The family of this 264-nucleotide RNA from Cellulosilyticum lentocellum is "Bacterial large signal recognition particle RNA".

[Rfam]
RNA sequence: CCGUGCUAGCCGGGGAGGUAGCGGUGCCCUGUACUUGCAACCCGCUGUAGCAAGGGUGAUGCUUCGUCUGAGGCAGAAAUUUGUAUAGUCUGCCCUUAAUAAGUGGCGAUGAGGAUUGGGUCUUACGCAAUAAGUACUUAUGAACCGUGUCAGGUCCGGAAGGAAGCAGCACUAAGUAAGAUCACUUAUGUGCCGUGAGGUUGCCUAGUCUGAGUUAACUGUUAAGGUAACGUAUAUGGCUUUUUGUCGAAGCGAAGUGCACGG
Numbered sequence: 001c002c003g004u005g006c007u008a009g010c011c012g013g014g015g016a017g018g019u020a021g022c023g024g025u026g027c028c029c030u031g032u033a034c035u036u037g038c039a040a041c042c043c044g045c046u047g048u049a050g051c052a053a054g055g056g057u058g059a060u061g062c063u064u065c066g067u068c069u070g071a072g073g074c075a076g077a078a079a080u081u082u083g084u085a086u087a088g089u090c091u092g093c094c095c096u097u098a099a100u101a102a103g104u105g106g107c108g109a110u111g112a113g114g115a116u117u118g119g120g121u122c123u124u125a126c127g128c129a130a131u132a133a134g135u136a137c138u139u140a141u142g143a144a145c146c147g148u149g150u151c152a153g154g155u156c157c158g159g160a161a162g163g164a165a166g167c168a169g170c171a172c173u174a175a176g177u178a179a180g181a182u183c184a185c186u187u188a189u190g191u192g193c194c195g196u197g198a199g200g201u202u203g204c205c206u207a208g209u210c211u212g213a214g215u216u217a218a219c220u221g222u223u224a225a226g227g228u229a230a231c232g233u234a235u236a237u238g239g240c241u242u243u244u245u246g247u248c249g250a251a252g253c254g255a256a257g258u259g260c261a262c263g264g
Stems, first nucleotide, its partner, number of pairs: 001264006009057003012030004017025001019023001034054005062257005068252002072248005078242002081239007091229002095226006103219002105216003113211009122199006128190002131188005137180005147172004155164003